Rfam assigns this 131-nucleotide RNA sequence from Actinoplanes regularis to the family "c-di-AMP riboswitch aptamer (ydaO/yuaA leader)". Rfam links the family to the GO terms cyclic-di-AMP binding and regulation of gene expression.
RNA sequence: GGCAGGCCGCCGCCCAAUCGUCGAAAGGCGAGCCGGGGAACCAGGUAGUUGGGGUGAAUCCGCAUUUUGCGGUAGGGGUACUUCCGUCCCGAACCCGUCAGCUAACUCGGUCGGCGGUGACUAGGAAGGAU
Number, nucleotide and partner (000 for none) at each position: 001g000002g000003c000004a000005g000006g000007c000008c000009g000010c000011c116012g115013c114014c113015c000016a000017a000018u031019c030020g029021u000022c000023g000024a000025a000026a000027g000028g000029c020030g019031a018032g111033c110034c109035g108036g107037g106038g000039a000040a000041c000042c051043a050044g000045g000046u000047a000048g000049u000050u043051g042052g096053g095054g094055u000056g000057a000058a000059u000060c072061c071062g070063c069064a000065u000066u000067u000068u000069g063070c062071g061072g060073u000074a000075g090076g089077g088078g087079u000080a000081c000082u000083u000084c000085c000086g000087u078088c077089c076090c075091g000092a000093a000094c054095c053096c052097g000098u000099c000100a000101g000102c000103u000104a000105a000106c037107u036108c035109g034110g033111u032112c000113g014114g013115c012116g011117g000118u000119g000120a000121c000122u000123a000124g000125g000126a000127a000128g000129g000130a000131u000